[Rfam]
RNA: Plastid-psbA-1 3UTR RNA
Organism: Hordeum vulgare
RNA sequence: UUGAAGUUCCAGCUAUUAAUGGAUAAGGUUUUGCUGCUAAAGUAUAAGCAUUUUUGAAGAAAGAAAAGACAAAAAUACCCAAUAUCUUGUUCUAGCAAGAUAUUGGGUAUUUUGAAUCUUUU
Numbered sequence: 001u002u003g004a005a006g007u008u009c010c011a012g013c014u015a016u017u018a019a020u021g022g023a024u025a026a027g028g029u030u031u032u033g034c035u036g037c038u039a040a041a042g043u044a045u046a047a048g049c050a051u052u053u054u055u056g057a058a059g060a061a062a063g064a065a066a067a068g069a070c071a072a073a074a075a076u077a078c079c080c081a082a083u084a085u086c087u088u089g090u091u092c093u094a095g096c097a098a099g100a101u102a103u104u105g106g107g108u109a110u111u112u113u114g115a116a117u118c119u120u121u122u
Base pairs, nucleotide, nucleotide: 008023009022010021011020064122065121066120067119068118069117072113073112074111075110076109077108078107080105081104082103084101085100086099087098088097